Shown here is a 399-nucleotide RNA sequence from Pseudomonas jinjuensis, a member of the family "Pseudomonas sRNA CrcZ". The family's RNA type in Rfam is small RNA. Taxonomically the source falls in Pseudomonas (Bacteria, Pseudomonadota, Gammaproteobacteria, Pseudomonadaceae). On this family, see Livny et al., Nucleic Acids Res 2006: "Identification of 17 Pseudomonas aeruginosa sRNAs and prediction of sRNA-encoding genes in 10 diverse pathogens using the bioinformatic tool sRNAPredict2". Its family is annotated with carbon catabolite repression of transcription in the Gene Ontology.
RNA sequence: ACAACAACAAUAACAAGCGACAGACAAGACAAUAAAAACAACACGUAUCGACUCCAGCACAACAAAAACAAAAUCGCGGAGGCGCAGCUAACUGAUUCCCUUGGAGAAGGGUGAAAGCCGGGAGCAAUCCCGCAACCAGUCGAAGAACAAUAAAACUGCCCCGAGGCAGCGACGAAACUGGUUGGAUCGCAAGAUCGCCGUAGCUCAGCGACCAAAGCAAUCCGUUAACUAUUCACAUCCCCACAACUGGGGAACCCCGAGGCGACUGGCCUCGCGGGACGGGUAGACAAACAAGAACAACAAGCCCGGCAAAUAAUAAAAAUAAAAGCACGCACCUAUUUGGGGGGGAGCUUCGGCUCCCCCAGUAGCUUCUGCCUCCCCCGCCGCUUUCCUACCCCG
Numbered sequence: 001a002c003a004a005c006a007a008c009a010a011u012a013a014c015a016a017g018c019g020a021c022a023g024a025c026a027a028g029a030c031a032a033u034a035a036a037a038a039c040a041a042c043a044c045g046u047a048u049c050g051a052c053u054c055c056a057g058c059a060c061a062a063c064a065a066a067a068a069c070a071a072a073a074u075c076g077c078g079g080a081g082g083c084g085c086a087g088c089u090a091a092c093u094g095a096u097u098c099c100c101u102u103g104g105a106g107a108a109g110g111g112u113g114a115a116a117g118c119c120g121g122g123a124g125c126a127a128u129c130c131c132g133c134a135a136c137c138a139g140u141c142g143a144a145g146a147a148c149a150a151u152a153a154a155a156c157u158g159c160c161c162c163g164a165g166g167c168a169g170c171g172a173c174g175a176a177a178c179u180g181g182u183u184g185g186a187u188c189g190c191a192a193g194a195u196c197g198c199c200g201u202a203g204c205u206c207a208g209c210g211a212c213c214a215a216a217g218c219a220a221u222c223c224g225u226u227a228a229c230u231a232u233u234c235a236c237a238u239c240c241c242c243a244c245a246a247c248u249g250g251g252g253a254a255c256c257c258c259g260a261g262g263c264g265a266c267u268g269g270c271c272u273c274g275c276g277g278g279a280c281g282g283g284u285a286g287a288c289a290a291a292c293a294a295g296a297a298c299a300a301c302a303a304g305c306c307c308g309g310c311a312a313a314u315a316a317u318a319a320a321a322a323u324a325a326a327a328g329c330a331c332g333c334a335c336c337u338a339u340u341u342g343g344g345g346g347g348g349a350g351c352u353u354c355g356g357c358u359c360c361c362c363c364a365g366u367a368g369c370u371u372c373u374g375c376c377u378c379c380c381c382c383g384c385c386g387c388u389u390u391c392c393u394a395c396c397c398c399g
Stems, first nucleotide, its partner, number of pairs: 049084002052081004099217001101215003113209001133184007156169005238252001240251003276381003281376001282307002326371004343366001344363008